[Rfam]
Plastid-psbA-3 3UTR RNA: a 57-nucleotide RNA sequence from Lactuca saligna.
From the family's description: Plastid psbA-3 is a non-coding RNA (ncRNA) present in plastids. It was identified in inverted repeat sequences in the 3 prime untranslate region (3UTR) of photosystem II quinone-binding protein (psbA).
For this family Rfam cites "Retrograde signaling in plants: A critical review focusing on the GUN pathway and beyond" (Richter et al., Plant Commun, 2023).
The organism belongs to Lactuca, within Eukaryota.
Clan: Plastid-psbA 3UTR RNA clan.

RNA sequence: AAAUGAGCAAUAACUUCUCUCUUGUUUUAUCAAGAUGGCGUUAUUGCUCAAUUUUUA
Numbered sequence: 001a002a003a004u005g006a007g008c009a010a011u012a013a014c015u016u017c018u019c020u021c022u023u024g025u026u027u028u029a030u031c032a033a034g035a036u037g038g039c040g041u042u043a044u045u046g047c048u049c050a051a052u053u054u055u056u057a
Base pairs, nucleotide, nucleotide: 001053002052004050005049006048007047008046009045010044011043012042013041014040020035021034022033023032024031